[Rfam]
RNA sequence: ACUCUUUCGCUCAGCUUUCGACAUGGUUCUGAACAAUACGCAUUGCAUAUGUUGUUGAGAUCAUUAGUUGAAAGCCGAAUGAUUUGAGA
Numbered sequence: 001a002c003u004c005u006u007u008c009g010c011u012c013a014g015c016u017u018u019c020g021a022c023a024u025g026g027u028u029c030u031g032a033a034c035a036a037u038a039c040g041c042a043u044u045g046c047a048u049a050u051g052u053u054g055u056u057g058a059g060a061u062c063a064u065u066a067g068u069u070g071a072a073a074g075c076c077g078a079a080u081g082a083u084u085u086g087a088g089a
Base pairs, nucleotide, nucleotide: 002088003087004086007082008081009080011078012077014075015074016073017072018071019070020069021068022067023064024063025062026061027060029059030058032056033055034054035053036052037051038050
RNA: mir-80 microRNA precursor family
Organism: Caenorhabditis brenneri